[Rfam]
Background: Mason-Pfizer monkey virus packaging signal: a 289-nucleotide sequence from Cavia porcellus. Rfam describes the family as follows. This family represents a group of sequences that are related to the Mason-Pfizer monkey virus (MPMV) packaging signal. Rfam classes the family as a cis-regulatory element. The base pairs follow the family's consensus structure, which was predicted with PFOLD. Taxonomically the source falls in Cavia (Eukaryota, Opisthokonta, Eumetazoa, Theria).

RNA sequence: UGGCGCCCGUCGUGGGGCUCCUGGCACGAGGGGCUUAACAAGGGAGCCGUCCUGAGAUGCGCGCGUAAGAAGGGAACUAAGAGUUUUGUGACCAAUGCUACGUGGGAGCCUGUCAUGCCACUGAGUCACGGUAAGUGGACGGCGAUCCUUUCCCUUUUUUUCCGGCAUGGGUCAGGCAUUAAGUGAUGCUUUGUGUCAGAUUUAACCAAAGCUUUAAAGACAAGAGGGAUAAAGGCUAAAGAAAAAGAUUUAUUGCAGUACUUUCAAGUUAUUCAUAAGGCUUGCCCUU
Numbered sequence: 001u002g003g004c005g006c007c008c009g010u011c012g013u014g015g016g017g018c019u020c021c022u023g024g025c026a027c028g029a030g031g032g033g034c035u036u037a038a039c040a041a042g043g044g045a046g047c048c049g050u051c052c053u054g055a056g057a058u059g060c061g062c063g064c065g066u067a068a069g070a071a072g073g074g075a076a077c078u079a080a081g082a083g084u085u086u087u088g089u090g091a092c093c094a095a096u097g098c099u100a101c102g103u104g105g106g107a108g109c110c111u112g113u114c115a116u117g118c119c120a121c122u123g124a125g126u127c128a129c130g131g132u133a134a135g136u137g138g139a140c141g142g143c144g145a146u147c148c149u150u151u152c153c154c155u156u157u158u159u160u161u162c163c164g165g166c167a168u169g170g171g172u173c174a175g176g177c178a179u180u181a182a183g184u185g186a187u188g189c190u191u192u193g194u195g196u197c198a199g200a201u202u203u204a205a206c207c208a209a210a211g212c213u214u215u216a217a218a219g220a221c222a223a224g225a226g227g228g229a230u231a232a233a234g235g236c237u238a239a240a241g242a243a244a245a246a247g248a249u250u251u252a253u254u255g256c257a258g259u260a261c262u263u264u265c266a267a268g269u270u271a272u273u274c275a276u277a278a279g280g281c282u283u284g285c286c287c288u289u
Stems, first nucleotide, its partner, number of pairs: 006032003012027003033047004085135002091132002097127001098125002101117005144173002147171003180216003183212002224264004229259002233251003237247001277288001279286002